Rfam assigns this 437-nucleotide RNA sequence from Pulveribacter suum to the family "Bacterial RNase P class A". Rfam classes the family as a ribozyme. A search with the family's covariance model found it, with a score of 178 bits. The organism belongs to Pulveribacter, within Bacteria.
RNA sequence: GAAGCACGCCAGACCGCCGCUGGUGCAAGCUGGGAAACCAGGCACUGGAGGAACGUCCGGACUGCACAGGGCAGCGUAGCAGCUAACGGCUGUCCACCGCGAGGUGAGGAUCAGAGCAACAGAGACGAGUUCGAGCGUAGAGGCGCCCACCAGGGGUGUUCUGCGGUUCGCCAGCGCAAGCUGGCGCGGCUGGCGCAAGCCAGACGGUGACGGGCGGUCAGCCCGGCACGACGCAGUCACCUCGGGCGCUUCGCGCCCGAGGUGAAACGGGCAAUCUCUACGCGCAGCAACACCAAGUAGGCACACGUUGACGGGGCCCCCGGAGUGUGCGGGUAGGUGGCAUCGAGCCGAGGUGGCGACACCCGGCCCAGAGUAAUGGCGGUCACGCCGCGGGCAACCGCGGUGCACAGAAUCCGGCUUAUCGGCGUGCUUCACAC
Numbered sequence: 001g002a003a004g005c006a007c008g009c010c011a012g013a014c015c016g017c018c019g020c021u022g023g024u025g026c027a028a029g030c031u032g033g034g035a036a037a038c039c040a041g042g043c044a045c046u047g048g049a050g051g052a053a054c055g056u057c058c059g060g061a062c063u064g065c066a067c068a069g070g071g072c073a074g075c076g077u078a079g080c081a082g083c084u085a086a087c088g089g090c091u092g093u094c095c096a097c098c099g100c101g102a103g104g105u106g107a108g109g110a111u112c113a114g115a116g117c118a119a120c121a122g123a124g125a126c127g128a129g130u131u132c133g134a135g136c137g138u139a140g141a142g143g144c145g146c147c148c149a150c151c152a153g154g155g156g157u158g159u160u161c162u163g164c165g166g167u168u169c170g171c172c173a174g175c176g177c178a179a180g181c182u183g184g185c186g187c188g189g190c191u192g193g194c195g196c197a198a199g200c201c202a203g204a205c206g207g208u209g210a211c212g213g214g215c216g217g218u219c220a221g222c223c224c225g226g227c228a229c230g231a232c233g234c235a236g237u238c239a240c241c242u243c244g245g246g247c248g249c250u251u252c253g254c255g256c257c258c259g260a261g262g263u264g265a266a267a268c269g270g271g272c273a274a275u276c277u278c279u280a281c282g283c284g285c286a287g288c289a290a291c292a293c294c295a296a297g298u299a300g301g302c303a304c305a306c307g308u309u310g311a312c313g314g315g316g317c318c319c320c321c322g323g324a325g326u327g328u329g330c331g332g333g334u335a336g337g338u339g340g341c342a343u344c345g346a347g348c349c350g351a352g353g354u355g356g357c358g359a360c361a362c363c364c365g366g367c368c369c370a371g372a373g374u375a376a377u378g379g380c381g382g383u384c385a386c387g388c389c390g391c392g393g394g395c396a397a398c399c400g401c402g403g404u405g406c407a408c409a410g411a412a413u414c415c416g417g418c419u420u421a422u423c424g425g426c427g428u429g430c431u432u433c434a435c436a437c
Base pairs, nucleotide, nucleotide: 001433002432003431004430005429006428007427008426009425010424011422012384013383014382015381016380017379018378020048021047022046023045024044025043026042053420055418057417058416059415060414061413062287063286064285065284069319070318071317072316074283075282076281077280078279079093080092081091082090083089094108095106096105097104098103109278110277114276115275116272117271131155132154133151135146136145137144138143161236162235163234164233165232237266238264239263240262241261242260243259244258245257246256247255248254249253291339292338293337294336301330302329303328304327305326306325312322313321314320347367348366349365350364352363353362354361355360